[Rfam]
RNA sequence: GGGCUGACUUUAGCCCAGCGGUUCCUUCGACUCUUGCCUUCCUAACCAUCUGGGUCGCUGGCUUUUAUCAUCCAGUGGUUAGAGACUCGCAGGUGCUCUCCAGUCCUUUU
Numbered sequence: 001g002g003g004c005u006g007a008c009u010u011u012a013g014c015c016c017a018g019c020g021g022u023u024c025c026u027u028c029g030a031c032u033c034u035u036g037c038c039u040u041c042c043u044a045a046c047c048a049u050c051u052g053g054g055u056c057g058c059u060g061g062c063u064u065u066u067a068u069c070a071u072c073c074a075g076u077g078g079u080u081a082g083a084g085a086c087u088c089g090c091a092g093g094u095g096c097u098c099u100c101c102a103g104u105c106c107u108u109u110u
Stems, first nucleotide, its partner, number of pairs: 002105005013094003018090004026084003030080001
This 110-nucleotide RNA from Cavia porcellus belongs to the Rfam family "Vault RNA". The family's RNA type in Rfam is non-coding RNA gene. Taxonomically the source falls in Cavia (Eukaryota, Eumetazoa, Amniota, Rodentia). The family has 73 seed sequences and 2,873 matches in Rfam 15.1.